[Rfam]
Rfam assigns this 73-nucleotide RNA sequence from Synechococcales cyanobacterium T60_A2020_003 to the family "tRNA". Rfam describes the family as follows. Transfer RNA (tRNA) molecules are approximately 80 nucleotides in length. Their secondary structure includes four short double-helical elements and three loops (D, anti-codon, and T loops). Further hydrogen bonds mediate the characteristic L-shaped molecular structure. tRNAs have two regions of fundamental functional importance: the anti-codon, which is responsible for specific mRNA codon recognition, and the 3' end, to which the tRNAs corresponding amino acid is attached (by aminoacyl-tRNA synthetases). tRNAs cope with the degeneracy of the genetic code in two manners: having more than one tRNA (with a specific anti-codon) for a particular amino acid; and 'wobble' base-pairing, i.e. permitting non-standard base-pairing at the 3rd anti-codon position.

RNA sequence: GGGGAAUUAGCUCAGUUGGUAGAGCACUAGGAUCGCACCCUAGAGGUCAGGAGUUCGAAUCUCCUAUUCUCCA
Number, nucleotide and partner (000 for none) at each position: 001g072002g071003g070004g069005a068006a067007u066008u000009a000010g025011c024012u023013c022014a000015g000016u000017u000018g000019g000020u000021a000022g013023a012024g011025c010026a000027c043028u042029a041030g040031g039032a000033u000034c000035g000036c000037a000038c000039c031040c030041u029042a028043g027044a000045g000046g000047u000048c000049a065050g064051g063052a062053g061054u000055u000056c000057g000058a000059a000060u000061c053062u052063c051064c050065u049066a007067u006068u005069c004070u003071c002072c001073a000

By type it is a transfer RNA.
Pairs were carried over by alignment from the consensus structure, which is taken from published work.
Clan: tRNA clan.
Lineage of the source: Bacteria > Bacillati > Cyanobacteriota > Cyanophyceae > Synechococcales.